[Rfam]
RNA sequence: GAGAGACAAGAACAGCUCAAAGCUUUCAGUCUCCGGCGUUUCGGGGAGGAAACGCCUCUUAAUACGAGCCUCGGCUCAAAAAAGCCCGCUGCGAUUAUCCCCCGUAGCGGGCUAUUUUGU
Numbered sequence: 001g002a003g004a005g006a007c008a009a010g011a012a013c014a015g016c017u018c019a020a021a022g023c024u025u026u027c028a029g030u031c032u033c034c035g036g037c038g039u040u041u042c043g044g045g046g047a048g049g050a051a052a053c054g055c056c057u058c059u060u061a062a063u064a065c066g067a068g069c070c071u072c073g074g075c076u077c078a079a080a081a082a083a084g085c086c087c088g089c090u091g092c093g094a095u096u097a098u099c100c101c102c103c104g105u106a107g108c109g110g111g112c113u114a115u116u117u118u119g120u
Stems, first nucleotide, its partner, number of pairs: 001034001003033005014024003035056008062120003065073003079117003083113011
Dot-bracket structure: (.(((((......(((.....)))....))))))((((((((......)))))))).....((((((...))).....(((.(((((((((((.........))))))))))).))))))
Record summary
Caulobacter sRNA CrfA: a 120-nucleotide RNA sequence from Alphaproteobacteria bacterium PA2. The source organism's lineage runs through Bacteria, Pseudomonadati, Pseudomonadota and Alphaproteobacteria. The base pairs follow the family's consensus structure. On this family, see Landt et al., Mol Microbiol 2008: "Small non-coding RNAs in Caulobacter crescentus".